[Rfam]
RNA sequence: GAUUCUAAGUCGCUGAAUUUCGUUAUUUCGAAAGCGGGGGACCCGUUUUGCCAAGUCAUAUUGGCUAGGGGUGAAGCCUUUAAAAGGCAGGGUUACUCUCAUAACCCUAAUCCGACAGCUAACCCCGCAAGCGUUAUAGAGAGAGAAU
Numbered sequence: 001g002a003u004u005c006u007a008a009g010u011c012g013c014u015g016a017a018u019u020u021c022g023u024u025a026u027u028u029c030g031a032a033a034g035c036g037g038g039g040g041a042c043c044c045g046u047u048u049u050g051c052c053a054a055g056u057c058a059u060a061u062u063g064g065c066u067a068g069g070g071g072u073g074a075a076g077c078c079u080u081u082a083a084a085a086g087g088c089a090g091g092g093u094u095a096c097u098c099u100c101a102u103a104a105c106c107c108u109a110a111u112c113c114g115a116c117a118g119c120u121a122a123c124c125c126c127g128c129a130a131g132c133g134u135u136a137u138a139g140a141g142a143g144a145g146a147a148u
Base pairs, nucleotide, nucleotide: 011133012132013131014130018033019032020031021030022029034128035127036126037125038124039123044068069113070112071111077087078086079085080084090107091106092105093104
A member of the RNA family "c-di-AMP riboswitch aptamer (ydaO/yuaA leader)" from Jeotgalibacillus sp. S-D1, 148 nucleotides long.